[Rfam]
RNA sequence: AUUCCUCCUGUCGUGUAUCCCCGGUUGAUGCAGCCUUAGAUGCUCC
Numbered sequence: 001a002u003u004c005c006u007c008c009u010g011u012c013g014u015g016u017a018u019c020c021c022c023g024g025u026u027g028a029u030g031c032a033g034c035c036u037u038a039g040a041u042g043c044u045c046c
Stems, first nucleotide, its partner, number of pairs: 010025004032044003
RNA: Plastid-ycf3 group II-D1 intron